The record is a 113-nucleotide RNA from Ileibacterium valens, which matches "FMN riboswitch aptamer (RFN element)" in Rfam. Rfam describes the family as follows. The RFN element is a highly conserved domain that is found frequently in the 5'-untranslated regions of prokaryotic mRNAs that encode for flavin mononucleotide (FMN) biosynthesis and transport proteins. Rfam links the family to the GO term FMN binding. The source organism's lineage runs through Bacteria, Bacillota, Erysipelotrichia, Erysipelotrichaceae and Ileibacterium.
[Rfam]
RNA sequence: CAAAAACUUCAGGGUGGGGUGAAAAUCCCAACCGGCGGUAUACCCCGCGAGCUUCGGCACGAACCGGUGAAAUUCCGGUGGCGACAGUAGAGUCUGGAUGGAAGAAGGUUUAU
Number, nucleotide and partner (000 for none) at each position: 001c000002a000003a111004a110005a109006a000007c107008u106009u105010c104011a000012g000013g000014g000015u000016g000017g029018g028019g027020u000021g000022a000023a000024a000025a000026u000027c019028c018029c017030a000031a093032c092033c083034g082035g048036c047037g046038g045039u000040a000041u000042a000043c081044c080045c038046c037047g036048c035049g000050a000051g000052c000053u057054u000055c000056g000057g053058c000059a000060c000061g000062a000063a079064c078065c077066g076067g075068u000069g000070a000071a000072a000073u000074u000075c067076c066077g065078g064079u063080g044081g043082c034083g033084a000085c096086a095087g094088u000089a000090g000091a000092g032093u031094c087095u086096g085097g000098a000099u000100g000101g000102a000103a000104g010105a009106a008107g007108g000109u005110u004111u003112a000113u000